[Rfam]
RNA sequence: CACCGUCGGGCGGGAGAGCGCGAGUCACAGCACCACGGCCGCGCACCGAAGGAGCAAGCCUCCCCGCCAAUCUCUCAGGUCAUCCGUACCGCUCGACCAGG
Numbered sequence: 001c002a003c004c005g006u007c008g009g010g011c012g013g014g015a016g017a018g019c020g021c022g023a024g025u026c027a028c029a030g031c032a033c034c035a036c037g038g039c040c041g042c043g044c045a046c047c048g049a050a051g052g053a054g055c056a057a058g059c060c061u062c063c064c065c066g067c068c069a070a071u072c073u074c075u076c077a078g079g080u081c082a083u084c085c086g087u088a089c090c091g092c093u094c095g096a097c098c099a100g101g
Stems, first nucleotide, its partner, number of pairs: 006096008019043004045080003048076002052074003058067002
Rfam assigns this 101-nucleotide RNA sequence from Chryseoglobus sp. 28M-23 to the family "Glycine riboswitch aptamer". The organism belongs to Microcella, within Bacteria. Pairs were carried over by alignment from the consensus structure.